[Rfam]
RNA sequence: AACUGUUUGCCAACACUCUGGUGCCUAAUCACUUAUUAUUUCUAUAAGUGGAAACUAUAUUGGGUUCCUAUUUUGGUGCAAACUAGAAUAACUCUUUUGAAGCUGACUACUCACCAUUAUACUCGUAUUCUUCUAUGAGUAUGAUAGGUCCAUUUCAUUAGCUUACAU
Numbered sequence: 001a002a003c004u005g006u007u008u009g010c011c012a013a014c015a016c017u018c019u020g021g022u023g024c025c026u027a028a029u030c031a032c033u034u035a036u037u038a039u040u041u042c043u044a045u046a047a048g049u050g051g052a053a054a055c056u057a058u059a060u061u062g063g064g065u066u067c068c069u070a071u072u073u074u075g076g077u078g079c080a081a082a083c084u085a086g087a088a089u090a091a092c093u094c095u096u097u098u099g100a101a102g103c104u105g106a107c108u109a110c111u112c113a114c115c116a117u118u119a120u121a122c123u124c125g126u127a128u129u130c131u132u133c134u135a136u137g138a139g140u141a142u143g144a145u146a147g148g149u150c151c152a153u154u155u156c157a158u159u160a161g162c163u164u165a166c167a168u
Base pairs, nucleotide, nucleotide: 007081008080009079020068021067023065024064026062027061028060029059033047101163102162103161104160114148115147116145117144119142120141121140122139123138124137

The record is a 168-nucleotide RNA from Hemisphaericaspora subhashii, which matches "Small nucleolar RNA snR80" in Rfam. Rfam 15.1 lists 447 matches to the family in 358 species. A reference for the family is Schattner et al. (2004), "Genome-wide searching for pseudouridylation guide snoRNAs: analysis of the Saccharomyces cerevisiae genome", Nucleic Acids Res. Pairs were carried over by alignment from the consensus structure, which was predicted with WAR.